[Rfam]
RNA sequence: UUCUUCCUCAAAGGGGAGUAGCGUCCGGGUUUACCCGGAAACAAAGUCGUCAGUUCAUGGAUGCGCACCAUCCAUCGGCUUUGUUGGCAUGAAUCGCUUGUUUUUUAUCUCAUGCUC
Numbered sequence: 001u002u003c004u005u006c007c008u009c010a011a012a013g014g015g016g017a018g019u020a021g022c023g024u025c026c027g028g029g030u031u032u033a034c035c036c037g038g039a040a041a042c043a044a045a046g047u048c049g050u051c052a053g054u055u056c057a058u059g060g061a062u063g064c065g066c067a068c069c070a071u072c073c074a075u076c077g078g079c080u081u082u083g084u085u086g087g088c089a090u091g092a093a094u095c096g097c098u099u100g101u102u103u104u105u106u107a108u109c110u111c112a113u114g115c116u117c
Stems, first nucleotide, its partner, number of pairs: 025038003040085010057075007086116007

This 117-nucleotide sequence from Paenibacillus sp. 598K belongs to the Rfam family "Manganese Mn2+ riboswitch aptamer (yybP-ykoY)".
A search with the family's covariance model found it, with a score of 49 bits.
From the family's description: This RNA was originally discovered in E. coli during a large scale screen and was named SraF. The family was later found to exist upstream of related families of protein genes in many bacteria, including the the yybP and ykoK genes in B. subtilis. The specific functions of these proteins are unknown, but this structured RNA element may be involved in their genetic regulation as a riboswitch.
Gene Ontology term of the family: manganese ion binding.